RNA sequence: GAGAAUUGGUCUCUCGACUGGGAUGUUAGGCAUAUCAGUCAAACGGCCUUAUGGGGCUUGCUUUUCACGGGUUGGUCUUGAGCGAUAAGGUAAAAGGCGCUACCAUUCUUGUAUUAUG
Numbered sequence: 001g002a003g004a005a006u007u008g009g010u011c012u013c014u015c016g017a018c019u020g021g022g023a024u025g026u027u028a029g030g031c032a033u034a035u036c037a038g039u040c041a042a043a044c045g046g047c048c049u050u051a052u053g054g055g056g057c058u059u060g061c062u063u064u065u066c067a068c069g070g071g072u073u074g075g076u077c078u079u080g081a082g083c084g085a086u087a088a089g090g091u092a093a094a095a096g097g098c099g100c101u102a103c104c105a106u107u108c109u110u111g112u113a114u115u116a117u118g
Stems, first nucleotide, its partner, number of pairs: 001015004016040006023033004047090006053079002056076003060072004101118001

Rfam assigns this 118-nucleotide RNA sequence from Flavivirga aquatica to the family "Group II catalytic intron D1-D4-2". A search with the family's covariance model found it, with a score of 54 bits. For this family Rfam cites "Group II introns: structure and catalytic versatility of large natural ribozymes" (Lehmann and Schmidt, Crit Rev Biochem Mol Biol, 2003). Rfam's curators write: Group II introns are found in rRNA, tRNA and mRNA of organelles in fungi, plants and protists, and also in mRNA in bacteria.